[Rfam]
RNA sequence: CGGUGAUCCUCGGAAAAGUAAUCAGGGUUCUAAACCGGCACUCAGUUGUCGCAAACAAAGAAUUUACCCUGGGGAAAGUCCCUGGAUCUUGGGCUGAAAAGUCUGCAUCUAAUAGAUGCACAGUUUUCACAAAGUUUACAGAUAAAUGAACCAUGAAAGCGGAAACGCCGAGUGAUAUUUGUAAGCACGUGAAAAUGUUCAUCAAAGAUCUAGUAACGCUUUAUACAAAACAGAAUAGGGCUUACAGAAGGAGCACC
Dot-bracket structure: .((((.((((...[.[[[[..(((((((.......(((((......)))))..............)))))))...(((.((((........((((....))))(((((.......)))))..(((.((((.....((((..........((.......(((....)))...)).......))))....)))).))).....................]]]]]..............))))))).....)))).))))
RNA: RNase MRP
Organism: Panagrolaimus sp. PS1159